[Rfam]
RNA: Ribosomal S15 leader
Organism: Pseudomonas sp. ABC1
RNA sequence: GAGGGUGGCUGUCAACAGGCACGGUCAUACCUCUUACUCAACACGGGCAAUGGCCCGGCCUGUUCACUUAGGAGUCCAUGACAUGGCACUGAGCGCUCAAGAAAAAGCCCAGAUCGUUAGCGAGUACAAGCAAGCUGAA
Numbered sequence: 001g002a003g004g005g006u007g008g009c010u011g012u013c014a015a016c017a018g019g020c021a022c023g024g025u026c027a028u029a030c031c032u033c034u035u036a037c038u039c040a041a042c043a044c045g046g047g048c049a050a051u052g053g054c055c056c057g058g059c060c061u062g063u064u065c066a067c068u069u070a071g072g073a074g075u076c077c078a079u080g081a082c083a084u085g086g087c088a089c090u091g092a093g094c095g096c097u098c099a100a101g102a103a104a105a106a107g108c109c110c111a112g113a114u115c116g117u118u119a120g121c122g123a124g125u126a127c128a129a130g131c132a133a134g135c136u137g138a139a
Stems, first nucleotide, its partner, number of pairs: 007055006068093002071090002074087001